[Rfam]
RNA: Alpha operon ribosome binding site
Organism: Opacimonas viscosa
RNA sequence: CAAUUUAGUUGACAGGUAAGUAUCCUAUCGGGCUUUUUAGGCUGUCAACCAUAACUAUGAGGAGUGCUGUUAAUGGCCCGUAUCGCUGGCAUUAACAUUCCUGAA
Number, nucleotide and partner (000 for none) at each position: 001c000002a000003a000004u053005u000006u051007a000008g049009u048010u047011g046012a045013c044014a000015g000016g000017u000018a000019a000020g000021u000022a000023u000024c089025c088026u000027a000028u000029c080030g079031g078032g077033c000034u000035u000036u000037u104038u103039a102040g000041g000042c000043u000044g013045u012046c011047a010048a009049c008050c000051a006052u000053a004054a000055c000056u000057a000058u000059g000060a000061g000062g000063a000064g000065u000066g000067c000068u000069g000070u000071u000072a000073a000074u000075g000076g000077c032078c031079c030080g029081u000082a000083u000084c000085g000086c000087u000088g025089g024090c000091a000092u000093u000094a000095a000096c000097a000098u000099u000100c000101c000102u039103g038104a037105a000